[Rfam]
RNA: GlmZ RNA activator of glmS mRNA
RNA sequence: GUAGAUGCUCAUUCCAUCUCUUAUGUUCGCGCAAGCCUCAUAAACUCCGGAAUGAUGCAGAGCCAUUUGCGGUGCUUAUCGUCCACUGACAGAUGUCGCUUCGGCCUCAUCAGACACCAUGGACAUAACGUUGAGUGAAGCACCUUUUGUUGUCAAAACGACCUGUUUAACGCCUGCGCUGGCUUCAGCGCAGGCGUUUUUUU
Numbered sequence: 001g002u003a004g005a006u007g008c009u010c011a012u013u014c015c016a017u018c019u020c021u022u023a024u025g026u027u028c029g030c031g032c033a034a035g036c037c038u039c040a041u042a043a044a045c046u047c048c049g050g051a052a053u054g055a056u057g058c059a060g061a062g063c064c065a066u067u068u069g070c071g072g073u074g075c076u077u078a079u080c081g082u083c084c085a086c087u088g089a090c091a092g093a094u095g096u097c098g099c100u101u102c103g104g105c106c107u108c109a110u111c112a113g114a115c116a117c118c119a120u121g122g123a124c125a126u127a128a129c130g131u132u133g134a135g136u137g138a139a140g141c142a143c144c145u146u147u148u149g150u151u152g153u154c155a156a157a158a159c160g161a162c163c164u165g166u167u168u169a170a171c172g173c174c175u176g177c178g179c180u181g182g183c184u185u186c187a188g189c190g191c192a193g194g195c196g197u198u199u200u201u202u203u
Stems, first nucleotide, its partner, number of pairs: 001063002006059003009055004015050001017049001019042001027035001071144007081124005092111004152162003169198011